[Rfam]
RNA sequence: AACCUUGGUAUGAGAGUGCCAGUUGAACGGUCAGAAGUCAGCAGAAGCCAUAGUAACCGCUUGAUCUAGACAAGAGGGGGAGGGC
Numbered sequence: 001a002a003c004c005u006u007g008g009u010a011u012g013a014g015a016g017u018g019c020c021a022g023u024u025g026a027a028c029g030g031u032c033a034g035a036a037g038u039c040a041g042c043a044g045a046a047g048c049c050a051u052a053g054u055a056a057c058c059g060c061u062u063g064a065u066c067u068a069g070a071c072a073a074g075a076g077g078g079g080g081a082g083g084g085c
Stems, first nucleotide, its partner, number of pairs: 002024001005022007038045002047085003057077002060074002

Shown here is an 85-nucleotide RNA from Halalkalibacterium halodurans, a member of the family "Group II catalytic intron D1-D4-1". For this family Rfam cites "Group II introns: structure and catalytic versatility of large natural ribozymes" (Lehmann and Schmidt, Crit Rev Biochem Mol Biol, 2003). Pairs were carried over by alignment from the consensus structure. Lineage of the source: Bacteria > Bacillati > Bacilli > Bacillaceae > Halalkalibacterium halodurans. The match comes from Rfam's covariance-model search (54 bits). Rfam's curators write: Group II introns are found in rRNA, tRNA and mRNA of organelles in fungi, plants and protists, and also in mRNA in bacteria.